[Rfam]
Shown here is a 149-nucleotide sequence from Polypterus senegalus, a member of the family "MIR480 microRNA precursor family".
RNA sequence: UAAUUUCCUUUAGACUAGUUCUGAAGUUGUCAUUUAAAAUCAAAAACUUAAAUCUUUCAUUUAUAAUCAAAAACUUAAAUAUAUCAUUUAUCUAAGUUGCCACACACAUGUGCAUGGAAGACAACUUCAGGACUAGUCUAAAGGAAAUU
Dot-bracket structure: ...((((((..(.((..((.....(.(((((........................................................................................)))))..)....))..)).)..))))))..
The literature on the family includes a 2005 paper in Plant Cell by Lu et al., "Novel and mechanical stress-responsive MicroRNAs in Populus trichocarpa that are absent from Arabidopsis". The match comes from Rfam's covariance-model search (40 bits).